[Rfam]
This 101-nucleotide sequence from Alteribacillus persepolensis belongs to the Rfam family "Purine riboswitch aptamer". A search with the family's covariance model found it, with a score of 81 bits. Pairs were carried over by alignment from the consensus structure, which is taken from published work.
RNA sequence: AAGUAAUGCAUAAGCUUUUUUCGUAUAAUCACGGAAAUACGGUCCGUGAGUCUCUACAGGCUACCGUAAAUAGCUUGACUACGAAAAAUCUGCAGUUUGGA
Numbered sequence: 001a002a003g004u005a006a007u008g009c010a011u012a013a014g015c016u017u018u019u020u021u022c023g024u025a026u027a028a029u030c031a032c033g034g035a036a037a038u039a040c041g042g043u044c045c046g047u048g049a050g051u052c053u054c055u056a057c058a059g060g061c062u063a064c065c066g067u068a069a070a071u072a073g074c075u076u077g078a079c080u081a082c083g084a085a086a087a088a089u090c091u092g093c094a095g096u097u098u099g100g101a
Stems, first nucleotide, its partner, number of pairs: 018087008029049007057077007